Shown here is a 255-nucleotide part of an RNA from Candidatus Tremblayella princeps, a member of the family "Bacterial large subunit ribosomal RNA".
Nucleotides: 255
Base pairs, nucleotide, nucleotide: 001159002158003157004156005155006154007153008152011145012144013143014142017045018044019043020042021041022040023039047102048101049100050099051098055096057094062089063088064087065086066085067082068081069080070079071078072077106140107139108138113133114132115131116130117129167251170249171248172247173246174190175189176188177187178186195241196240197239198237199236200235201234202233205229211224212223213222214221215220
Number, partner (000 for none) and nucleotide at each position: 001159g002158g003157a004156u005155a006154c007153c008152u009000g010000a011145g012144g013143g014142g015000a016000g017045c018044u019043g020042c021041u022040c023039c024000u025000a026000g027000u028000a029000c030000g031000a032000g033000a034000g035000g036000a037000c038000c039023g040022g041021a042020g043019u044018g045017g046000a047102c048101a049100a050099a051098c052000c053000u054000a055096u056000a057094g058000u059000g060000u061000g062089c063088c064087g065086g066085u067082u068081g069080u070079c071078g072077u073000c074000u075000c076000a077072a078071u079070g080069g081068c082067a083000u084000c085066g086065c087064c088063g089062g090000g091000u092000a093000g094057c095000c096055a097000c098051g099050u100049u101048u102047g103000g104000c105000a106140g107139g108138g109000a110000u111000a112000a113133c114132u115131g116130c117129u118000g119000a120000a121000g122000g123000c124000a125000u126000a127000u128000a129117a130116g131115c132114a133113g134000g135000a136000a137000g138108c139107c140106u141000a142014c143013c144012c145011c146000a147000a148000g149000a150000u151000u152008a153007g154006g155005u156004a157003u158002c159001c160000c161000a162000a163000u164000a165000a166000u167251g168000a169000a170249g171248g172247g173246c174190c175189g176188u177187u178186c179000a180000a181000g182000a183000c184000a185000a186178g187177a188176a189175c190174g191000u192000u193000g194000a195241u196240a197239g198237g199236c200235u201234g202233g203000g204000u205229g206000u207000g208000u209000a210000a211224g212223c213222g214221u215220u216000g217000u218000g219000a220215a221214a222213c223212g224211u225000u226000g227000a228000g229205c230000u231000g232000a233202c234201c235200a236199g237198u238000a239197c240196u241195a242000a243000u244000g245000c246173g247172c248171c249170c250000g251167u252000g253000a254000g255000a

NCBI's taxonomy places the organism under Bacteria, Pseudomonadati, Pseudomonadota, Betaproteobacteria, Candidatus Tremblayella. Rfam's curators put it in the seed alignment.